The record is a 105-nucleotide sequence from Devosia pacifica, which matches "Guanidine-I riboswitch aptamer" in Rfam.
A search with the family's covariance model found it, with a score of 84 bits.
Rfam 15.1 lists 1,509 matches to the family in 1,281 species.
This family represents a conserved RNA structure found upstream of the ykkC and yxkD genes in Bacillus subtilis and related genes in other bacteria.

RNA sequence: UGAGUUGGUCGCUAGGGUUCCGGCGCUUUUGCGCGGCAGGUCCGAGAGCGACCACUGGCCGAACGACAUCGGUCAGAUGCACGGCGGGAUAAAAGCCCGGGAGAC
Numbered sequence: 001u002g003a004g005u006u007g008g009u010c011g012c013u014a015g016g017g018u019u020c021c022g023g024c025g026c027u028u029u030u031g032c033g034c035g036g037c038a039g040g041u042c043c044g045a046g047a048g049c050g051a052c053c054a055c056u057g058g059c060c061g062a063a064c065g066a067c068a069u070c071g072g073u074c075a076g077a078u079g080c081a082c083g084g085c086g087g088g089a090u091a092a093a094a095g096c097c098c099g100g101g102a103g104a105c
Base pairs, nucleotide, nucleotide: 007053008052009051010050011049012048015043016042020040021039022037023034024033025032026031054078055076056075057074058073059072060071061070080100082103086098087097088096